[Rfam]
RNA sequence: GCUGCACAUUUGAGGCAAUAAUAGAAGUGUUCAUGGCACACCCCUGUUAGAUUCCAGUGAAUCUACAAAUUCUGCU
Numbered sequence: 001g002c003u004g005c006a007c008a009u010u011u012g013a014g015g016c017a018a019u020a021a022u023a024g025a026a027g028u029g030u031u032c033a034u035g036g037c038a039c040a041c042c043c044c045u046g047u048u049a050g051a052u053u054c055c056a057g058u059g060a061a062u063c064u065a066c067a068a069a070u071u072c073u074g075c076u
Stems, first nucleotide, its partner, number of pairs: 012044001014042002020076001022074005027039003048065007
A member of the RNA family "Mammalian CPEB3 ribozyme" from Crocodylus porosus, 76 nucleotides long. Gene Ontology term of the family: RNA nuclease activity. The mammalian CPEB3 ribozyme is a self cleaving RNA located in the second intron of the CPEB3 gene which belongs to a family of genes regulating messenger RNA polyadenylation. This ribozyme is highly conserved and found only in mammals. The CPEB3 ribozyme is structurally and biochemically related to the human hepatitis delta virus (HDV) ribozyme and the HDV ribozyme is proposed to have arisen from the human transcriptome. There is currently only one other known self cleaving ribozyme in mammals, the CoTC motif.